[Rfam]
Nucleotides: 149
Base pairs, nucleotide, nucleotide: 012037013036014035015033018032019031020030021029022028023027044066045065046064047063048062049061052088053087054086055085067084068083069082070081071080072079073078117149118148119147124143125142126141127140128139129138130137131136
Number, partner (000 for none) and nucleotide at each position: 001000c002000c003000a004000c005000a006000u007000c008000g009000g010000a011000a012037a013036u014035g015033c016000c017000u018032g019031c020030c021029g022028a023027c024000g025000u026000c027023g028022u029021c030020g031019g032018c033015g034000a035014c036013a037012u038000g039000c040000c041000c042000a043000g044066g045065u046064a047063g048062c049061c050000c051000c052088g053087g054086u055085c056000u057000u058000c059000a060000a061049g062048g063047c064046u065045a066044c067084g068083g069082c070081g071080c072079a073078g074000u075000c076000c077000g078073c079072u080071g081070c082069g083068c084067u085055g086054a087053c088052c089000a090000c091000a092000a093000c094000c095000c096000c097000g098000u099000u100000c101000g102000c103000c104000u105000c106000g107000c108000a109000u110000c111000c112000u113000g114000g115000c116000c117149g118148c119147g120000a121000a122000c123000g124143a125142u126141c127140a128139c129138c130137g131136c132000u133000g134000c135000c136131g137130c138129g139128g140127u141126g142125a143124u144000g145000g146000a147119u148118g149117c